Shown here is a 285-nucleotide RNA from Oidiodendron maius, a member of the family "Fungal signal recognition particle RNA". Clan: SRP clan. Pairs were carried over by alignment from the consensus structure, which is taken from published work.
RNA sequence: CGGCUGUCAUGGUCGUCAAGUAGGAAGACCCUGCAAUACCAUACACGCGCCCGCAUUCUCGUCUUUCACAAGUCGCCCGGCAGCAGCGCCCAGUCCGAACAGAGCGGUGGCCCCCCACUCGUGCAGGUAACUCACGAUGCUGGACUAAGGGGCCUUAAGCAAUGGAGAUGAUUUCUCGAGGGAGGCCUCACUCUGCAGAGAGCUCUCCACCGCGCUGUGGCGGUGCCGGAUUACGUUGGCUGUGGGUUGCGCGCGCGGUGUGGUGGUGGGAGUCGACCUUUUUUU
Number, nucleotide and partner (000 for none) at each position: 001c015002g014003g013004c012005u000006g000007u000008c000009a000010u000011g000012g004013u003014c002015g001016u000017c000018a283019a282020g281021u000022a279023g278024g277025a000026a000027g274028a273029c272030c000031c270032u000033g000034c268035a267036a000037u000038a264039c263040c262041a261042u260043a259044c258045a000046c257047g256048c255049g254050c253051c000052c251053g250054c249055a248056u000057u000058c000059u000060c075061g074062u000063c072064u071065u070066u000067c000068a000069c000070a065071a064072g063073u000074c061075g060076c000077c246078c245079g000080g000081c242082a241083g240084c239085a000086g236087c235088g234089c000090c229091c228092a000093g226094u225095c223096c222097g221098a000099a218100c217101a216102g215103a000104g213105c212106g211107g210108u000109g146110g145111c000112c000113c143114c142115c000116c139117a138118c000119u137120c136121g135122u134123g133124c000125a132126g131127g000128u000129a000130a000131c126132u125133c123134a122135c121136g120137a119138u117139g116140c000141u000142g114143g113144a000145c110146u109147a000148a000149g000150g000151g000152g000153c000154c000155u159156u000157a000158a000159g155160c000161a000162a000163u209164g208165g207166a206167g205168a204169u000170g000171a000172u000173u202174u201175c200176u199177c198178g000179a000180g000181g000182g193183a192184g191185g000186c000187c000188u000189c000190a000191c184192u183193c182194u000195g000196c000197a000198g177199a176200g175201a174202g173203c000204u168205c167206u166207c165208c164209a163210c107211c106212g105213c104214g000215c102216u101217g100218u099219g000220g000221c097222g096223g095224u000225g094226c093227c000228g091229g090230a000231u000232u000233a000234c088235g087236u086237u000238g000239g084240c083241u082242g081243u000244g000245g078246g077247u000248u055249g054250c053251g052252c000253g050254c049255g048256c047257g046258g044259u043260g042261u041262g040263g039264u038265g000266g000267u035268g034269g000270g031271a000272g029273u028274c027275g000276a000277c024278c023279u022280u000281u020282u019283u018284u000285u000
Taxonomically the source falls in Oidiodendron maius (Eukaryota, Opisthokonta, Dikarya, leotiomyceta). The family has 50 seed sequences and 748 matches in Rfam 15.1. Rfam links the family to the GO terms SRP-dependent cotranslational protein targeting to membrane, signal sequence recognition, signal recognition particle, endoplasmic reticulum targeting and signal recognition particle, plasma membrane targeting.